Shown here is a 173-nucleotide RNA from Flavonifractor sp. An135, a member of the family "Lysine riboswitch aptamer".
The family's consensus secondary structure is taken from published work.
The source organism's lineage runs through Bacteria, Bacillota, Eubacteriales, Oscillospiraceae and Flavonifractor.
RNA sequence: UGCAAUGAUAGAGGCGCGGACGCGCAUGAGUAACCGGCACACACGGGCAGAGCACCCGGCCGGUGAAAGGGCCUUCCGCCGAAGGGCCGUAUUCCUGCCUGGGGUGCGGUAGCCUGGGCCGUGGGAGAAUAUCUCACGGACUGCCACAAACGGUGUGGAGCGCUAUCAUUGAC
Numbered sequence: 001u002g003c004a005a006u007g008a009u010a011g012a013g014g015c016g017c018g019g020a021c022g023c024g025c026a027u028g029a030g031u032a033a034c035c036g037g038c039a040c041a042c043a044c045g046g047g048c049a050g051a052g053c054a055c056c057c058g059g060c061c062g063g064u065g066a067a068a069g070g071g072c073c074u075u076c077c078g079c080c081g082a083a084g085g086g087c088c089g090u091a092u093u094c095c096u097g098c099c100u101g102g103g104g105u106g107c108g109g110u111a112g113c114c115u116g117g118g119c120c121g122u123g124g125g126a127g128a129a130u131a132u133c134u135c136a137c138g139g140a141c142u143g144c145c146a147c148a149a150a151c152g153g154u155g156u157g158g159a160g161c162g163c164u165a166u167c168a169u170u171g172a173c
Stems, first nucleotide, its partner, number of pairs: 006168006016079005022073001024072002033064006083115003086110009116142002119139008144158005